[Rfam]
Shown here is a 63-nucleotide RNA from Caenorhabditis brenneri, a member of the family "mir-39 microRNA precursor family".
The base pairs follow the family's consensus structure, which was predicted with RNAalifold.
Gene Ontology terms of the family: RISC complex and miRNA-mediated post-transcriptional gene silencing.
RNA sequence: AGCUGAUUUCAACCACGGUAAUAAGCUCCAUAGAUAGCCUAUCACCGGGUGGAAAUCAGUUAG
Numbered sequence: 001a002g003c004u005g006a007u008u009u010c011a012a013c014c015a016c017g018g019u020a021a022u023a024a025g026c027u028c029c030a031u032a033g034a035u036a037g038c039c040u041a042u043c044a045c046c047g048g049g050u051g052g053a054a055a056u057c058a059g060u061u062a063g
Stems, first nucleotide, its partner, number of pairs: 001061010012050003016047004021042003025038003